The record is a 122-nucleotide sequence from Polynucleobacter wuianus, which matches "icd-II ncRNA motif" in Rfam. Rfam links the family to the GO term regulation of gene expression. By type it is a cis-regulatory element. From the family's description: icd-II ncRNA motif was located upstream of icd gene, which codes for NADP+-dependent isocitrate dehydrogenase (IDH) enzyme. icd-II has been proposed as a strong candidate riboswitch. Part of the secondary structure of icd-II includes the ribosomal binding site (RBS) of the adjacent gene wish suggest that this element can be regulating translation initiation of its associated transcript. NCBI's taxonomy places the organism under Bacteria, Pseudomonadota, Burkholderiales, Burkholderiaceae, Polynucleobacter.
RNA sequence: CCAAUGAUUUAAAAUUGAAGACUCGCCUCAUUGGCAAAAGCCAGCUAAAAGCGGCUUCCAAAAUGCGGAAUAUGAGAGUGGCAGGGUAAAAACCUGACUCUGUAAAUUUAUCAAUAUCGAGG
Numbered sequence: 001c002c003a004a005u006g007a008u009u010u011a012a013a014a015u016u017g018a019a020g021a022c023u024c025g026c027c028u029c030a031u032u033g034g035c036a037a038a039a040g041c042c043a044g045c046u047a048a049a050a051g052c053g054g055c056u057u058c059c060a061a062a063a064u065g066c067g068g069a070a071u072a073u074g075a076g077a078g079u080g081g082c083a084g085g086g087u088a089a090a091a092a093c094c095u096g097a098c099u100c101u102g103u104a105a106a107u108u109u110a111u112c113a114a115u116a117u118c119g120a121g122g
Base pairs, nucleotide, nucleotide: 002119004117005116006115010110011109012108013107022076023075024074025073027068028067031065034059039056040055041054044052045051080099081098082096083095084094085093